[Rfam]
RNA sequence: GCCACAUGAUGAACCCUGAGACGUCACUAGCAUACCGUGCAAAGAUGACUCACAUCUAUCACCCAAGACUGAUGGUU
Numbered sequence: 001g002c003c004a005c006a007u008g009a010u011g012a013a014c015c016c017u018g019a020g021a022c023g024u025c026a027c028u029a030g031c032a033u034a035c036c037g038u039g040c041a042a043a044g045a046u047g048a049c050u051c052a053c054a055u056c057u058a059u060c061a062c063c064c065a066a067g068a069c070u071g072a073u074g075g076u077u
Stems, first nucleotide, its partner, number of pairs: 001076004030040004
Annotation: The family of this 77-nucleotide sequence from Ornithorhynchus anatinus is "Small nucleolar RNA SNORD83". It is annotated as a C/D-box small nucleolar RNA. Rfam links the family to the GO terms RNA processing and nucleolus. For this family Rfam cites "Characterisation of the U83 and U84 small nucleolar RNAs: two novel 2'-O-ribose methylation guide RNAs that lack complementarities to ribosomal RNAs" (Jady and Kiss, Nucleic Acids Res, 2000). The match comes from Rfam's covariance-model search (46 bits). The base pairs follow the family's consensus structure, which was predicted with PFOLD.